Bacterial large signal recognition particle RNA: a 266-nucleotide sequence from Anaerobacillus arseniciselenatis.
The match comes from Rfam's covariance-model search (148 bits).

RNA sequence: UCGCAAUAGACGGGGCAGUAGCGGCGCCUUGUAACCUGCAAUCCGCUAUAGCAGGGUCGAAUUCCUAAUGAAGGUUUAGUCAUGUGUGGACAGUACUUUCGAUUUGAUGUUGAUGAAAAAACCUUUUACAAAGAAAACCCUACGAACGGGUCAGAUCCGGAAGGAAGCAGCCAUAAGAAGGACCAUUUUCUUGUGUAAAAGACCAUUUUUUCUGAGUCAAAGAAAAAGGAUACGCAUGGAUGAUUAAAUCGUACUUAGGUUUGCGA
Number, nucleotide and partner (000 for none) at each position: 001u266002c265003g264004c263005a262006a261007u000008a000009g058010a057011c056012g030013g029014g028015g027016c026017a000018g000019u023020a000021g000022c000023g019024g000025c000026g016027c015028c014029u013030u012031g000032u000033a000034a000035c055036c054037u053038g052039c051040a000041a000042u000043c000044c000045g000046c000047u000048a000049u000050a000051g039052c038053a037054g036055g035056g011057u010058c009059g000060a000061a000062u000063u000064c259065c258066u257067a256068a255069u000070g000071a000072a000073g250074g249075u248076u247077u246078a000079g244080u243081c242082a241083u240084g000085u238086g237087u236088g235089g000090a000091c000092a000093g231094u000095a000096c228097u227098u226099u225100c000101g000102a000103u000104u221105u220106g218107a217108u216109g000110u000111u000112g000113a000114u000115g212116a211117a210118a209119a208120a207121a206122c000123c201124u200125u199126u198127u197128a196129c193130a192131a000132a191133g190134a189135a188136a187137a000138c000139c181140c180141u179142a000143c177144g000145a000146a000147c000148g000149g172150g171151u170152c000153a000154g000155a000156u165157c164158c163159g000160g000161a000162a000163g158164g157165a156166a000167g000168c000169a000170g151171c150172c149173a000174u000175a000176a000177g143178a000179a141180g140181g139182a000183c000184c000185a000186u000187u136188u135189u134190c133191u132192u130193g129194u000195g000196u128197a127198a126199a125200a124201g123202a000203c000204c000205a000206u121207u120208u119209u118210u117211u116212c115213u000214g000215a000216g108217u107218c106219a000220a105221a104222g000223a000224a000225a099226a098227a097228g096229g000230a000231u093232a000233c000234g000235c088236a087237u086238g085239g000240a083241u082242g081243a080244u079245u000246a077247a076248a075249u074250c073251g000252u000253a000254c000255u068256u067257a066258g065259g064260u000261u006262u005263g004264c003265g002266a001
The source organism's lineage runs through Bacteria, Bacillati, Bacilli, Bacillaceae and Anaerobacillus. Its Rfam clan is "SRP clan".